Overview
This 368-nucleotide RNA from Dehalogenimonas formicexedens belongs to the Rfam family "Bacterial RNase P class A". It scores 290 bits against the family's covariance model.
RNA sequence: CAAGCAGAGCGGGCAGUCGCUCCGGUUUUAUCGGAGAGGAAAGUCCGAGCUCCGUCGGACGGGGUGCCGGGUAACACCCGGGAGGGGCGACCCUACGGAAAGUGCAACAGAAACACACCGCCAGCGGUCCCGACUCGUCGGGAUGCGGGUAAGGGUGAAAUGGCGAGUUAAGAGCUCACCGGCAGCCGGGAGACCGGCUGGCCGUGAAAACCCCACCCGGAGCAAGGCCAAAUAGGGGGACAAAAAGGCGUGUCCGCGCUGUCCCCGGGUUGGCCGCAUGAGCCUGCCGGUAACGGCUGGACUAGAUAGAUGGCUGCCGUCCCGAGAAUAUCGGGAUACAGAACUCGGCUUACAGCUCUGCUUGGCAC
Numbered sequence: 001c002a003a004g005c006a007g008a009g010c011g012g013g014c015a016g017u018c019g020c021u022c023c024g025g026u027u028u029u030a031u032c033g034g035a036g037a038g039g040a041a042a043g044u045c046c047g048a049g050c051u052c053c054g055u056c057g058g059a060c061g062g063g064g065u066g067c068c069g070g071g072u073a074a075c076a077c078c079c080g081g082g083a084g085g086g087g088c089g090a091c092c093c094u095a096c097g098g099a100a101a102g103u104g105c106a107a108c109a110g111a112a113a114c115a116c117a118c119c120g121c122c123a124g125c126g127g128u129c130c131c132g133a134c135u136c137g138u139c140g141g142g143a144u145g146c147g148g149g150u151a152a153g154g155g156u157g158a159a160a161u162g163g164c165g166a167g168u169u170a171a172g173a174g175c176u177c178a179c180c181g182g183c184a185g186c187c188g189g190g191a192g193a194c195c196g197g198c199u200g201g202c203c204g205u206g207a208a209a210a211c212c213c214c215a216c217c218c219g220g221a222g223c224a225a226g227g228c229c230a231a232a233u234a235g236g237g238g239g240a241c242a243a244a245a246a247g248g249c250g251u252g253u254c255c256g257c258g259c260u261g262u263c264c265c266c267g268g269g270u271u272g273g274c275c276g277c278a279u280g281a282g283c284c285u286g287c288c289g290g291u292a293a294c295g296g297c298u299g300g301a302c303u304a305g306a307u308a309g310a311u312g313g314c315u316g317c318c319g320u321c322c323c324g325a326g327a328a329u330a331u332c333g334g335g336a337u338a339c340a341g342a343a344c345u346c347g348g349c350u351u352a353c354a355g356c357u358c359u360g361c362u363u364g365g366c367a368c
Stems, first nucleotide, its partner, number of pairs: 001364010011353001012318007020036007041351003045348005050222004057255004062218005067081005082096001083094004097213002102211002105206002118154002120150003124146003128142003162180002165177003182202001183200007226275004236266006247260005283300002286297004